A member of the RNA family "BsrC" from Paenibacillus protaetiae, 88 nucleotides long. It scores 78 bits against the family's covariance model.

RNA sequence: UUAUUCCAAAACAACGAAAGCCCUGCCUCUCUUUCGUCCUUGCGGCUCCGAAGACCGCGCCAGUGUGAAUCAGAACUACAGUACAAAU
Numbered sequence: 001u002u003a004u005u006c007c008a009a010a011a012c013a014a015c016g017a018a019a020g021c022c023c024u025g026c027c028u029c030u031c032u033u034u035c036g037u038c039c040u041u042g043c044g045g046c047u048c049c050g051a052a053g054a055c056c057g058c059g060c061c062a063g064u065g066u067g068a069a070u071c072a073g074a075a076c077u078a079c080a081g082u083a084c085a086a087a088u
Stems, first nucleotide, its partner, number of pairs: 034068003039063002041059005047053001
Description:
On this family, see Saito et al., Gene 2008: "Novel small RNA-encoding genes in the intergenic regions of Bacillus subtilis". By type it is a small RNA. The family's consensus secondary structure was predicted with CMfinder. The 301 nucleotide sequence from Kouji Nakamura has been trimmed to a highly conserved ~85 nucleotide long core to form this family.